[Rfam]
RNA sequence: UUUAAAUGGAGCAGUAACCAUUUUAAAAACGUGGCGGAUUCCGAAAAGCCUUAUGAGUAGGAAAACU
Numbered sequence: 001u002u003u004a005a006a007u008g009g010a011g012c013a014g015u016a017a018c019c020a021u022u023u024u025a026a027a028a029a030c031g032u033g034g035c036g037g038a039u040u041c042c043g044a045a046a047a048g049c050c051u052u053a054u055g056a057g058u059a060g061g062a063a064a065a066c067u
Base pairs, nucleotide, nucleotide: 006021007020008019009018033050034049035048040061041060